[Rfam]
RNA sequence: UGGCUACAAAAUAACUUAUUUUGUAACCACUUUGAGUUAUGAUAAUUAUUAUGCUAAUUUACAUGAUUAUAGUAACUGCUUACUAAGUGAUUUACUAUAAUGUCAUGGUAAAUAUCCCCAUGUGUUAUAGUAACAUAAUUAUCGUAAAUUAGUAUAUAGAAUUAUCGUAAAUGGAGGUGGGUAUAGAAUAACUUAUUUUAUAGCUG
Numbered sequence: 001u002g003g004c005u006a007c008a009a010a011a012u013a014a015c016u017u018a019u020u021u022u023g024u025a026a027c028c029a030c031u032u033u034g035a036g037u038u039a040u041g042a043u044a045a046u047u048a049u050u051a052u053g054c055u056a057a058u059u060u061a062c063a064u065g066a067u068u069a070u071a072g073u074a075a076c077u078g079c080u081u082a083c084u085a086a087g088u089g090a091u092u093u094a095c096u097a098u099a100a101u102g103u104c105a106u107g108g109u110a111a112a113u114a115u116c117c118c119c120a121u122g123u124g125u126u127a128u129a130g131u132a133a134c135a136u137a138a139u140u141a142u143c144g145u146a147a148a149u150u151a152g153u154a155u156a157u158a159g160a161a162u163u164a165u166c167g168u169a170a171a172u173g174g175a176g177g178u179g180g181g182u183a184u185a186g187a188a189u190a191a192c193u194u195a196u197u198u199u200a201u202a203g204c205u206g
Stems, first nucleotide, its partner, number of pairs: 001206006008199007016191010027180007037170011050156013065143003069139002073137002087134001093132011107117002
Record summary:
A member of the RNA family "MIR6217 microRNA precursor family" from Miscanthus lutarioriparius, 206 nucleotides long. A search with the family's covariance model found it, with a score of 128 bits. The organism belongs to Miscanthus, within Eukaryota. The family has 2 seed sequences and 2,266 matches in Rfam 15.1.